[Rfam]
RNA sequence: GUUUUCGGAUAAUCGCGGAAUACAUUAGGUGUUCUGAGGAAAGUCCAUGCUCGCACAAGCUGCGAUGCUUGUAGUGUUCGUGCUUAGCGAAACAAUAAGCUAAGGUAUAGUUUAGGCUAUAACGGCAGAAAAAAUAGCUAAGGAGCAAUCUAUGCUAGAGUAUUCUUGAAAGUGCCACAGUGACGAAGCAGUUGAAGAAAUUUAAUUGGUGGAACGCGGUAAACCCCUCGAGCGAGCAACCCAAACAAUGGUAGGGGCGCCUUUUGAACGGAAAUGAACGGGUCAAAGGGGCAAUAUAAUUGCAGAUAGAUGAUUAUCCAAAUCCUUUUAUUACCCUGGAAAGGAUUGGACAAAACAUGGCUUAUAGAA
Dot-bracket structure: ...(((((((((((.((((((.........))))))....[[[.[[[[[(((((((((((......)))))).....(((.(((((((..........))))))(((((((....)))))).)((.((((....((((...(((....)))..)))).....)))).....(((((............((((((((....)))))))).........)))..))))).))))))))...(((...........)))...(((((((.................)))))))(((((...)))))........)))))))..((((((((...........))))))))........]]]]]]]].).)))
Numbered sequence: 001g002u003u004u005u006c007g008g009a010u011a012a013u014c015g016c017g018g019a020a021u022a023c024a025u026u027a028g029g030u031g032u033u034c035u036g037a038g039g040a041a042a043g044u045c046c047a048u049g050c051u052c053g054c055a056c057a058a059g060c061u062g063c064g065a066u067g068c069u070u071g072u073a074g075u076g077u078u079c080g081u082g083c084u085u086a087g088c089g090a091a092a093c094a095a096u097a098a099g100c101u102a103a104g105g106u107a108u109a110g111u112u113u114a115g116g117c118u119a120u121a122a123c124g125g126c127a128g129a130a131a132a133a134a135u136a137g138c139u140a141a142g143g144a145g146c147a148a149u150c151u152a153u154g155c156u157a158g159a160g161u162a163u164u165c166u167u168g169a170a171a172g173u174g175c176c177a178c179a180g181u182g183a184c185g186a187a188g189c190a191g192u193u194g195a196a197g198a199a200a201u202u203u204a205a206u207u208g209g210u211g212g213a214a215c216g217c218g219g220u221a222a223a224c225c226c227c228u229c230g231a232g233c234g235a236g237c238a239a240c241c242c243a244a245a246c247a248a249u250g251g252u253a254g255g256g257g258c259g260c261c262u263u264u265u266g267a268a269c270g271g272a273a274a275u276g277a278a279c280g281g282g283u284c285a286a287a288g289g290g291g292c293a294a295u296a297u298a299a300u301u302g303c304a305g306a307u308a309g310a311u312g313a314u315u316a317u318c319c320a321a322a323u324c325c326u327u328u329u330a331u332u333a334c335c336c337u338g339g340a341a342a343g344g345a346u347u348g349g350a351c352a353a354a355a356c357a358u359g360g361c362u363u364a365u366a367g368a369a
Stems, first nucleotide, its partner, number of pairs: 004369003007365001008318007016036006041363003045360005050236005055072006078231003082227001083104006105123001106121006124226002127166004135157004142151003172224002174220003189208008240256003260290007291303005321347008

The record is a 369-nucleotide RNA from Enterococcus columbae, which matches "Bacterial RNase P class B" in Rfam. A reference for the family is Frank and Pace (1998), "Ribonuclease P: unity and diversity in a tRNA processing ribozyme", Annu Rev Biochem.